[Rfam]
RNA sequence: GGUUUGUAGGCAGUAUGGUUUUCUGAUUGUUUUGUAACUGUUGCAAUCACUAACCAUACUGCCAACAAAAC
Numbered sequence: 001g002g003u004u005u006g007u008a009g010g011c012a013g014u015a016u017g018g019u020u021u022u023c024u025g026a027u028u029g030u031u032u033u034g035u036a037a038c039u040g041u042u043g044c045a046a047u048c049a050c051u052a053a054c055c056a057u058a059c060u061g062c063c064a065a066c067a068a069a070a071c
Stems, first nucleotide, its partner, number of pairs: 003069004009063002012060009024049007
RNA: mir-34 microRNA precursor family